Description: A member of the RNA family "Manganese Mn2+ riboswitch aptamer (yybP-ykoY)" from Betaproteobacteria bacterium UKL13-2, 176 nucleotides long. Its family is annotated with manganese ion binding in the Gene Ontology. The organism belongs to Betaproteobacteria, within Bacteria.

[Rfam]
RNA sequence: UGCCGCGUCAUCAGGGAGUAGCUUCACCCCGCAGUGGGUGGCUUGCAUCAACAGACUUGGCGCCCCGAGUUUUCAGGCGCUAUGGUGCAAGCGGCAUAUGCUUAGCGAGACUUUUGGCUGCGUGAAUCCAUCAUGCUGGUGGGGUUCAUGUGGUCAUCUGUCAUCCACCGGCUAGG
Dot-bracket structure: .........................(((........))).((((((((((.......(((((((...........)))))))))))))))))......(............................................................................)